[Rfam]
RNA sequence: GAUCCGUUCCGUUCGGUGCGGCUCCUGUCCGAACACAGGCCACUGCCCGGAAAUGUCGAGAGACGCCAAUGGGUAGAACAGCCCUCUCCGGCUUAAGGGGACGGCUAAGGUGGCUGGGGUGCGGGGCGCGACGCCCCGGGCGCGGCAGCGCUCCCUACGUCGGACAGUGCUCAAACCACAGACGAGGGAAUGGACG
Number, nucleotide and partner (000 for none) at each position: 001g000002a000003u000004c000005c192006g191007u190008u189009c188010c187011g183012u182013u096014c000015g177016g176017u175018g000019c000020g171021g170022c169023u000024c000025c167026u166027g165028u164029c163030c162031g161032a160033a000034c000035a000036c000037a000038g000039g114040c113041c112042a111043c110044u000045g074046c073047c072048c071049g070050g000051a000052a000053a000054u065055g064056u063057c062058g000059a000060g000061a000062g057063a056064c055065g054066c000067c000068a000069a000070u049071g048072g047073g046074u045075a000076g000077a000078a000079c000080a000081g105082c104083c103084c000085u000086c000087u099088c098089c097090g000091g000092c000093u000094u000095a000096a013097g089098g088099g087100g000101a000102c000103g083104g082105c081106u000107a000108a000109g000110g043111u042112g041113g040114c039115u000116g155117g154118g153119g000120u000121g000122c000123g000124g000125g000126g000127c000128g000129c000130g000131a000132c000133g000134c000135c000136c000137c000138g000139g000140g000141c000142g000143c000144g000145g000146c000147a000148g000149c000150g000151c000152u000153c118154c117155c116156u000157a000158c000159g000160u032161c031162g030163g029164a028165c027166a026167g025168u000169g022170c021171u020172c000173a000174a000175a017176c016177c015178a000179c000180a000181g000182a012183c011184g000185a000186g000187g010188g009189a008190a007191u006192g005193g000194a000195c000196g000
A member of the RNA family "M-box riboswitch aptamer (ykoK leader)" from Coriobacteriaceae bacterium EMTCatB1, 196 nucleotides long. The match comes from Rfam's covariance-model search (124 bits). NCBI's taxonomy places the organism under Bacteria, Bacillati, Coriobacteriia, Coriobacteriales, Coriobacteriaceae.